[Rfam]
RNA sequence: GCGGUAGAGGUUCUAGCACCCCUCUUUAAAAAAACUAAGGAAAA
Numbered sequence: 001g002c003g004g005u006a007g008a009g010g011u012u013c014u015a016g017c018a019c020c021c022c023u024c025u026u027u028a029a030a031a032a033a034a035c036u037a038a039g040g041a042a043a044a
Stems, first nucleotide, its partner, number of pairs: 006025005016036001
The record is a 44-nucleotide RNA sequence from Bacillus sp. MUM 116, which matches "PreQ1 (pre queuosine) riboswitch aptamer" in Rfam. For this family Rfam cites "Analysis of a preQ1-I riboswitch in effector-free and bound states reveals a metabolite-programmed nucleobase-stacking spine that controls gene regulation" (Schroeder et al., Nucleic Acids Res, 2020). Gene Ontology term of the family: queuosine biosynthetic process. About the family: This family is a bacterial riboswitch that binds to the metabolite preQ1, an intermediate in the biosynthesis of the modified nucleoside queuosine from GTP. One example of this riboswitch is located in the leader of the Bacillus subtilis ykvJKLM (queCDEF) operon which encodes four genes necessary for queuosine production. PreQ1 binding to the riboswitch aptamer is thought to induce premature transcription termination within the leader to down-regulate expression of these genes. The family has 43 seed sequences and 873 matches in Rfam 15.1.